[Rfam]
RNA sequence: GCCGGUCCUCGGUAGUGGCUCUCGUGUCCGCCAGGACACGGGCGCUUCGAUCGAAGACCGGC
Dot-bracket structure: (((((((.(((((...(((.(((((((((....))))))))).)))...))))).)))))))

A member of the RNA family "Actino-pnp RNA" from Carbonactinospora thermoautotrophica, 62 nucleotides long. The match comes from Rfam's covariance-model search (68 bits).